This 133-nucleotide RNA from Podargus strigoides belongs to the Rfam family "Small nucleolar RNA SNORA55".
A search with the family's covariance model found it, with a score of 115 bits.

Nucleotides: 133
Base pairs, nucleotide, nucleotide: 001056002055003054004053005052012046013045014044015043016042017041020038021037067126068125069124070123071122072121080114081113082112083111084110085109086108087107093105094104095103
Number, partner (000 for none) and nucleotide at each position: 001056g002055c003054a004053c005052c006000a007000g008000a009000u010000c011000u012046u013045u014044c015043c016042c017041a018000u019000u020038c021037c022000u023000u024000c025000c026000u027000g028000u029000g030000c031000a032000g033000u034000g035000u036000g037021g038020g039000c040000c041017u042016g043015g044014g045013g046012a047000c048000a049000c050000a051000u052005g053004g054003u055002g056001c057000u058000u059000a060000c061000a062000g063000a064000a065000g066000a067126g068125c069124a070123g071122a072121g073000u074000g075000a076000a077000u078000c079000c080114a081113g082112a083111u084110a085109g086108g087107u088000g089000a090000c091000u092000u093105c094104u095103c096000g097000u098000u099000c100000c101000a102000u103095g104094a105093g106000u107087a108086c109085c110084u111083a112082u113081c114080u115000c116000u117000a118000c119000a120000c121072c122071u123070c124069u125068g126067c127000g128000a129000c130000a131000g132000u133000u
Annotation:
The family's RNA type in Rfam is H/ACA-box small nucleolar RNA. Rfam's curators write: ACA55 is a member of the H/ACA class of snoRNA that guide the sites of modification of uridines to pseudouridines.